[Rfam]
RNA sequence: UGAACGAUAGUAAAUAAUCCUCAUAUAAAUUCGAGAAUAAGGCUCGAACGUUUCUACCUGGCCGCCGUAAACGGCCGGUCUAUGAGGGAGCUGCAGAAUUGG
Numbered sequence: 001u002g003a004a005c006g007a008u009a010g011u012a013a014a015u016a017a018u019c020c021u022c023a024u025a026u027a028a029a030u031u032c033g034a035g036a037a038u039a040a041g042g043c044u045c046g047a048a049c050g051u052u053u054c055u056a057c058c059u060g061g062c063c064g065c066c067g068u069a070a071a072c073g074g075c076c077g078g079u080c081u082a083u084g085a086g087g088g089a090g091c092u093g094c095a096g097a098a099u100u101g102g
Stems, first nucleotide, its partner, number of pairs: 018088008030048006058078007
Dot-bracket structure: .................((((((((....((((((.......)))))).........(((((((.......)))))))..))))))))..............